[Rfam]
MIR2593 microRNA precursor family: a 115-nucleotide sequence from Medicago truncatula. The source organism's lineage runs through Eukaryota, Viridiplantae, Embryophyta, Spermatophyta and Medicago.
RNA sequence: UUAUAAGCAAAAAUCUACUUUUUAGGUUCAUUGAAUAUCUAAUGUAUGUGGUCUAUAAUAUAUACCAAGUACAUUAAGUAUUCAAUGAACCAAAAAAGUAGCGUUUUGCUUAUAA
Numbered sequence: 001u002u003a004u005a006a007g008c009a010a011a012a013a014u015c016u017a018c019u020u021u022u023u024a025g026g027u028u029c030a031u032u033g034a035a036u037a038u039c040u041a042a043u044g045u046a047u048g049u050g051g052u053c054u055a056u057a058a059u060a061u062a063u064a065c066c067a068a069g070u071a072c073a074u075u076a077a078g079u080a081u082u083c084a085a086u087g088a089a090c091c092a093a094a095a096a097a098g099u100a101g102c103g104u105u106u107u108g109c110u111u112a113u114a115a
Base pairs, nucleotide, nucleotide: 002114003113004112005111006110007109009107010106011105012104015101016100017099018098019097020096021095022094023093025091027089028088029087030086031085032084033083034082035081036080037079038078040076041075042074043073044072049067050066051065052064